This 98-nucleotide RNA from Leuconostoc carnosum belongs to the Rfam family "TPP riboswitch aptamer (THI element)". The family's consensus secondary structure is taken from published work. Taxonomically the source falls in Leuconostoc carnosum (Bacteria, Bacillati, Bacilli, Lactobacillales). Rfam links the family to the GO term thiamine pyrophosphate binding. A search with the family's covariance model found it, with a score of 69 bits.
[Rfam]
RNA sequence: GAAAAAUAUCUGGGGUGCCUAUUAUUUGUUUGGCUGAGAAUAUACCCAUAUAACCUGAUCAGAUUAGAAUCUGCGUAGGAAGAUGUGAUUAAUAAUAU
Dot-bracket structure: .....(((((((((.((((.(........).))).......)..)))).....((((..((((......))))..))))..)))))............